[Rfam]
RNA: pan motif
Nucleotides: 102
Stems, first nucleotide, its partner, number of pairs: 001027003004023005010018002067098003070094005076089003
Number, partner (000 for none) and nucleotide at each position: 001027c002026a003025g004023g005022u006021g007020g008019u009000a010018u011017c012000a013000a014000u015000u016000u017011g018010a019008a020007c021006c022005g023004c024000a025003c026002u027001g028000u029000a030000g031000a032000u033000a034000u035000u036000a037000a038000a039000c040000g041000a042000g043000a044000a045000g046000a047000a048000u049000u050000g051000a052000u053000u054000u055000u056000u057000u058000u059000a060000u061000u062000g063000c064000a065000u066000u067098c068097u069096g070094c071093u072092u073091u074090g075000a076089u077088c078087c079000g080000u081000a082000a083000a084000a085000g086000g087078g088077g089076a090074c091073a092072g093071a094070g095000a096069c097068a098067g099000g100000g101000g102000g